The record is an 84-nucleotide sequence from Phascolarctos cinereus, which matches "Small nucleolar RNA SNORD100" in Rfam. It is annotated as a C/D-box small nucleolar RNA. The family has 26 seed sequences and 838 matches in Rfam 15.1.
RNA sequence: GCUGUACAUGAUGACAACUUGGCUCCCUCUACUGAUUAUGUUGAAGAGAACAGCCAUGUCACCCAAUAUAUCUGAGCGUACAGC
Numbered sequence: 001g002c003u004g005u006a007c008a009u010g011a012u013g014a015c016a017a018c019u020u021g022g023c024u025c026c027c028u029c030u031a032c033u034g035a036u037u038a039u040g041u042u043g044a045a046g047a048g049a050a051c052a053g054c055c056a057u058g059u060c061a062c063c064c065a066a067u068a069u070a071u072c073u074g075a076g077c078g079u080a081c082a083g084c
Base pairs, nucleotide, nucleotide: 001084002083003082004081005080006079